RNA sequence: GGACUCGGCUUGCUGAGUGCACGCAGCAAGAGGCGAGGCG
Numbered sequence: 001g002g003a004c005u006c007g008g009c010u011u012g013c014u015g016a017g018u019g020c021a022c023g024c025a026g027c028a029a030g031a032g033g034c035g036a037g038g039c040g
Stems, first nucleotide, its partner, number of pairs: 004038001005036003009030006
RNA: Human immunodeficiency virus type 1 dimerisation initiation site